[Rfam]
RNA: MIR408 microRNA precursor family
Organism: Erythranthe guttata
RNA sequence: GAGUAAAGAAGAGGGUAGACGGGGACGAGACAGAGCACGGGAUGGACCUUUCAACACCCAUAGAUGGUCUUGUUGUCCUUGCCAUGCACUGCCUCUUCCCUGGCUUUCCUCUCUCUCUCUCU
Numbered sequence: 001g002a003g004u005a006a007a008g009a010a011g012a013g014g015g016u017a018g019a020c021g022g023g024g025a026c027g028a029g030a031c032a033g034a035g036c037a038c039g040g041g042a043u044g045g046a047c048c049u050u051u052c053a054a055c056a057c058c059c060a061u062a063g064a065u066g067g068u069c070u071u072g073u074u075g076u077c078c079u080u081g082c083c084a085u086g087c088a089c090u091g092c093c094u095c096u097u098c099c100c101u102g103g104c105u106u107u108c109c110u111c112u113c114u115c116u117c118u119c120u121c122u
Stems, first nucleotide, its partner, number of pairs: 017105002020102006028094002031091003035087003039083001041082001045078001